[Rfam]
RNA sequence: ACAAAAUUUAGACUGUCAGUCUACCGAGCAAUUUCACCCGCUCGGUGGAAGAUAGAUUUUCCCUUUAUCGU
Numbered sequence: 001a002c003a004a005a006a007u008u009u010a011g012a013c014u015g016u017c018a019g020u021c022u023a024c025c026g027a028g029c030a031a032u033u034u035c036a037c038c039c040g041c042u043c044g045g046u047g048g049a050a051g052a053u054a055g056a057u058u059u060u061c062c063c064u065u066u067a068u069c070g071u
Stems, first nucleotide, its partner, number of pairs: 004068001006066001011061002015057003020049010
About this RNA:
Shown here is a 71-nucleotide RNA sequence from Bombyx mori, a member of the family "mir-2774 microRNA precursor family". Taxonomically the source falls in Bombyx (Eukaryota, Metazoa, Aparaglossata, Bombycoidea). On this family, see Liu et al., BMC Genomics 2010: "MicroRNAs of Bombyx mori identified by Solexa sequencing". The base pairs follow the family's consensus structure, which was predicted with RNAalifold.